RNA sequence: CGCCCUUCAGGAGAUGGCAUUCCUCCUCGAACCGCCCGGCGCCUGCCGGGCUGAUGAUGCCUGCGGAACC
Numbered sequence: 001c002g003c004c005c006u007u008c009a010g011g012a013g014a015u016g017g018c019a020u021u022c023c024u025c026c027u028c029g030a031a032c033c034g035c036c037c038g039g040c041g042c043c044u045g046c047c048g049g050g051c052u053g054a055u056g057a058u059g060c061c062u063g064c065g066g067a068a069c070c
Stems, first nucleotide, its partner, number of pairs: 010026004016061006034051007